[Rfam]
The family of this 196-nucleotide RNA sequence from Anabarilius grahami is "Small nucleolar RNA SNORA74". The family is grouped with related families in Rfam's "SNORA74 clan". Rfam describes the family as follows. U19 belongs to the H/ACA class of snoRNAs. snoRNAs bind a number of proteins (including dyskerin, Gar1p and Nop10p in the case of the H/ACA class) to form snoRNP complexes. This class are thought to guide the sites of modification of uridines to pseudouridines by forming direct base pairing interactions with substrate RNAs. It is annotated as an H/ACA-box small nucleolar RNA. The match comes from Rfam's covariance-model search (98 bits). Lineage of the source: Eukaryota > Opisthokonta > Bilateria > Otomorpha > Anabarilius. On this family, see Ganot et al., Genes Dev 1997: "The family of box ACA small nucleolar RNAs is defined by an evolutionarily conserved secondary structure and ubiquitous sequence elements essential for RNA accumulation".

RNA sequence: CCCAGCGGUAGUCAGCUGUCCAGGCCAGCCCGUGCCUGAGCUAGUGUUACUCUGCUGGAAGAGAAAGCCACUGCCGUCUGUGCUCCAUCAGGAUUGGCUGUUUUAGUGAAUCCUGCUGUGCAGCACUGGCCGUGCCGCCUUCUGAGAGUGGACUGUGCUCACUACAUGAGGCAGCCCUAGUCUGGGGGCGAACACU
Numbered sequence: 001c002c003c004a005g006c007g008g009u010a011g012u013c014a015g016c017u018g019u020c021c022a023g024g025c026c027a028g029c030c031c032g033u034g035c036c037u038g039a040g041c042u043a044g045u046g047u048u049a050c051u052c053u054g055c056u057g058g059a060a061g062a063g064a065a066a067g068c069c070a071c072u073g074c075c076g077u078c079u080g081u082g083c084u085c086c087a088u089c090a091g092g093a094u095u096g097g098c099u100g101u102u103u104u105a106g107u108g109a110a111u112c113c114u115g116c117u118g119u120g121c122a123g124c125a126c127u128g129g130c131c132g133u134g135c136c137g138c139c140u141u142c143u144g145a146g147a148g149u150g151g152a153c154u155g156u157g158c159u160c161a162c163u164a165c166a167u168g169a170g171g172c173a174g175c176c177c178u179a180g181u182c183u184g185g186g187g188g189c190g191a192a193c194a195c196u
Base pairs, nucleotide, nucleotide: 002058003057004056005055006054007053008052011050012049015045016044017043018042020040021038022037023036024035025034067135068134070133071132073130074129075128080126081125082124083123084122086118087117089115090114092112093111094109097107098106099105136190137189138188139187140186141185150177151176154173155172156171158170159169160168161167